[Rfam]
RNA: MIR4371 microRNA precursor family
RNA sequence: CUAUUAAAUGAUAACGUGUCUGACGGAGUACCACAUUAUCACGCCUUGUCACAUACACCUCAUUGUCACGUCAUCACCUUAAAUGAUGUAACACUGACGUAUUAGUGAUUGGACACGAUGAUGUGACACUCCGUCUACCACAUCAUUACUUAACAGAA
Dot-bracket structure: ((.((((.((((.(.(((...((((((((..(((((((((..(.((.(((((..(.((...........(((((........)))))...........)).)..))))).)).)..)))))))))..))))))))...))).).)))).)))).))..
Numbered sequence: 001c002u003a004u005u006a007a008a009u010g011a012u013a014a015c016g017u018g019u020c021u022g023a024c025g026g027a028g029u030a031c032c033a034c035a036u037u038a039u040c041a042c043g044c045c046u047u048g049u050c051a052c053a054u055a056c057a058c059c060u061c062a063u064u065g066u067c068a069c070g071u072c073a074u075c076a077c078c079u080u081a082a083a084u085g086a087u088g089u090a091a092c093a094c095u096g097a098c099g100u101a102u103u104a105g106u107g108a109u110u111g112g113a114c115a116c117g118a119u120g121a122u123g124u125g126a127c128a129c130u131c132c133g134u135c136u137a138c139c140a141c142a143u144c145a146u147u148a149c150u151u152a153a154c155a156g157a158a
Stems, first nucleotide, its partner, number of pairs: 001156002004153004009148004014143001016141003022135008032125009043114001045112002048109005055102001057100002070087005